[Rfam]
RNA sequence: UGUUGACAAGGGCAUAGCCGUUGCAAAGCGGUGACGCAAAGCUACCUGUCCAGGGAUGCCCGCAUCCUGUGGAUCGAGGGGCCGCCACA
Numbered sequence: 001u002g003u004u005g006a007c008a009a010g011g012g013c014a015u016a017g018c019c020g021u022u023g024c025a026a027a028g029c030g031g032u033g034a035c036g037c038a039a040a041g042c043u044a045c046c047u048g049u050c051c052a053g054g055g056a057u058g059c060c061c062g063c064a065u066c067c068u069g070u071g072g073a074u075c076g077a078g079g080g081g082c083c084g085c086c087a088c089a
Stems, first nucleotide, its partner, number of pairs: 012037002017032006041082003045079003048074003051069004
Dot-bracket structure: ...........((...((((((....))))))...))...(((.((((((((((...........))))..)))..)))))).......
Shown here is an 89-nucleotide sequence from Halomonas sp. 1513, a member of the family "c-di-GMP-I riboswitch aptamer". A search with the family's covariance model found it, with a score of 50 bits. Pairs were carried over by alignment from the consensus structure, which is taken from published work. The organism belongs to Halomonas, within Bacteria. Its family is annotated with cyclic-di-GMP binding in the Gene Ontology.